RNA sequence: GAUCGCAAUGACGACUCAGAAAAUUCAAGCUCAACAGACCGGAUUACAGGCUUUCUCUCUUUUUGGAGAUUGUUUUGUAUGUCGAUAACCCCGCUGAACUGAGCGAUC
Numbered sequence: 001g002a003u004c005g006c007a008a009u010g011a012c013g014a015c016u017c018a019g020a021a022a023a024u025u026c027a028a029g030c031u032c033a034a035c036a037g038a039c040c041g042g043a044u045u046a047c048a049g050g051c052u053u054u055c056u057c058u059c060u061u062u063u064u065g066g067a068g069a070u071u072g073u074u075u076u077g078u079a080u081g082u083c084g085a086u087a088a089c090c091c092c093g094c095u096g097a098a099c100u101g102a103g104c105g106a107u108c
Base pairs, nucleotide, nucleotide: 001108002107003106004105005104006103
The record is a 108-nucleotide RNA from Turnera subulata, which matches "Small nucleolar RNA Z107/R87" in Rfam. Gene Ontology terms of the family: nucleolus and RNA processing. A reference for the family is Barneche et al. (2001), "Identification of 66 box C/D snoRNAs in Arabidopsis thaliana: extensive gene duplications generated multiple isoforms predicting new ribosomal RNA 2'-O-methylation sites", J Mol Biol. The base pairs follow the family's consensus structure, which was predicted with RNAfold. A search with the family's covariance model found it, with a score of 107 bits.